[Rfam]
RNA sequence: UUAUAUAUGCGUAUAUAAUUGCAGGGUUCUAAGCUUUACGGGAAACUCAACCGAAAGUUUCUUAUUUAAGAAACUUUCGGUUGGGUUUCCCGUAAAGCCGAACGGUUGGGUUUUCCGUAAAGCUUAGAAUCCCACAAUUACAUACGCAUAUAUAA
Numbered sequence: 001u002u003a004u005a006u007a008u009g010c011g012u013a014u015a016u017a018a019u020u021g022c023a024g025g026g027u028u029c030u031a032a033g034c035u036u037u038a039c040g041g042g043a044a045a046c047u048c049a050a051c052c053g054a055a056a057g058u059u060u061c062u063u064a065u066u067u068a069a070g071a072a073a074c075u076u077u078c079g080g081u082u083g084g085g086u087u088u089c090c091c092g093u094a095a096a097g098c099c100g101a102a103c104g105g106u107u108g109g110g111u112u113u114u115c116c117g118u119a120a121a122g123c124u125u126a127g128a129a130u131c132c133c134a135c136a137a138u139u140a141c142a143u144a145c146g147c148a149u150a151u152a153u154a155a
Stems, first nucleotide, its partner, number of pairs: 001155014016140006024132002027129015070114007
The family of this 155-nucleotide RNA from Brassica cretica is "MIR9555 microRNA precursor family". Taxonomically the source falls in Brassica (Eukaryota, Embryophyta, Pentapetalae, rosids).